[Rfam]
Rfam assigns this 314-nucleotide RNA from Monosporascus sp. 5C6A to the family "Group I catalytic intron". A search with the family's covariance model found it, with a score of 100 bits. Pairs were carried over by alignment from the consensus structure, which is taken from published work. For this family Rfam cites "Crystal structure of a group I ribozyme domain: principles of RNA packing" (Cate et al., Science, 1996).
RNA sequence: GAAAGGGGUUCUAUAAAAUAGGCCUCUAGUGAUUGGGAUUUACUUACCAAUUGCGACACUAUCAAAUUGCGGGGAGUUCCUAAAGCUUAAACUACCGCGGCUUAUCGAAAGAUUAAGUGCAGCAUUAGGCGUAAUGGCCUAAGGAUGGUAAAAACGUUUAAGAUGUUACAAUGGAUAAUCCGCAGCCAAGUCCGUAUUAAAAAAAGGAUGCAGUUCAACGAUUAAAUGGUAGUGGGUUGGAUUUAGUGGAAGCCGUACUGGCGGAAACAUAAUCCGGCUUAAGAUAUAAUCUACUCCCUCGGUGAAAAUCGAGG
Numbered sequence: 001g002a003a004a005g006g007g008g009u010u011c012u013a014u015a016a017a018a019u020a021g022g023c024c025u026c027u028a029g030u031g032a033u034u035g036g037g038a039u040u041u042a043c044u045u046a047c048c049a050a051u052u053g054c055g056a057c058a059c060u061a062u063c064a065a066a067u068u069g070c071g072g073g074g075a076g077u078u079c080c081u082a083a084a085g086c087u088u089a090a091a092c093u094a095c096c097g098c099g100g101c102u103u104a105u106c107g108a109a110a111g112a113u114u115a116a117g118u119g120c121a122g123c124a125u126u127a128g129g130c131g132u133a134a135u136g137g138c139c140u141a142a143g144g145a146u147g148g149u150a151a152a153a154a155c156g157u158u159u160a161a162g163a164u165g166u167u168a169c170a171a172u173g174g175a176u177a178a179u180c181c182g183c184a185g186c187c188a189a190g191u192c193c194g195u196a197u198u199a200a201a202a203a204a205a206g207g208a209u210g211c212a213g214u215u216c217a218a219c220g221a222u223u224a225a226a227u228g229g230u231a232g233u234g235g236g237u238u239g240g241a242u243u244u245a246g247u248g249g250a251a252g253c254c255g256u257a258c259u260g261g262c263g264g265a266a267a268c269a270u271a272a273u274c275c276g277g278c279u280u281a282a283g284a285u286a287u288a289a290u291c292u293a294c295u296c297c298c299u300c301g302g303u304g305a306a307a308a309u310c311g312a313g314g
Base pairs, nucleotide, nucleotide: 005026007025008024010022011021012020013019030042031041032040057234058233059232060231061230063228064227068184069183070182071181072180073179078175079174080173185214186213190209191208192207193206198202218292220291221290222289223288224287236278237277238276239275240274241273242272243271299312300311301310302309303308